[Rfam]
RNA sequence: ACCCUGAUCCGGGCCCCUCUGGUGCAAGCUUUGGCUGCUUGUGCGAUGUCGGAUCGCACGU
Numbered sequence: 001a002c003c004c005u006g007a008u009c010c011g012g013g014c015c016c017c018u019c020u021g022g023u024g025c026a027a028g029c030u031u032u033g034g035c036u037g038c039u040u041g042u043g044c045g046a047u048g049u050c051g052g053a054u055c056g057c058a059c060g061u
Base pairs, nucleotide, nucleotide: 006055007054008053009052010051011050012049022044023043024042025041026040027039028038029037
Rfam assigns this 61-nucleotide RNA sequence from Arminella tumorigenes to the family "terC RNA".
The base pairs follow the family's consensus structure, which is taken from published work.
The family's RNA type in Rfam is cis-regulatory element.
A search with the family's covariance model found it, with a score of 55 bits.